A member of the RNA family "tRNA", 73 nucleotides long. Rfam describes the family as follows. Transfer RNA (tRNA) molecules are approximately 80 nucleotides in length.
RNA sequence: GCCACCCUAGCUCAGUUGGUAGAGCAGCUCACUCGUAACGAGCAGGUCAGGAGUUCGAUUCUCCUGGGUGGCU
Numbered sequence: 001g002c003c004a005c006c007c008u009a010g011c012u013c014a015g016u017u018g019g020u021a022g023a024g025c026a027g028c029u030c031a032c033u034c035g036u037a038a039c040g041a042g043c044a045g046g047u048c049a050g051g052a053g054u055u056c057g058a059u060u061c062u063c064c065u066g067g068g069u070g071g072c073u
Stems, first nucleotide, its partner, number of pairs: 001072007010025004027043004049065005